Shown here is a 165-nucleotide RNA sequence from Paenibacillus foliorum, a member of the family "FMN riboswitch aptamer (RFN element)". Its family is annotated with FMN binding in the Gene Ontology.
[Rfam]
RNA sequence: GAUUUCCUUCGGGGCGGGGUGCAAUUCCCCACCGGCGGUGAUACGAAGCGCUCUAGCGCGCUUUGUUCAGUCCGUGACCCGUUCUGCAGCUUCUUGUAAGCCGCAGGCGGUGGACUUGGUGAAAUUCCGAGACCGACAGUAUAGUCUGGAUGGGAGAAGGAAAAC
Dot-bracket structure: ..((((((((......(((.......))).[[((((((...............................[[))))...(((((......................)))))....(((((.......)))))]])).(((....]]))).......))))))))..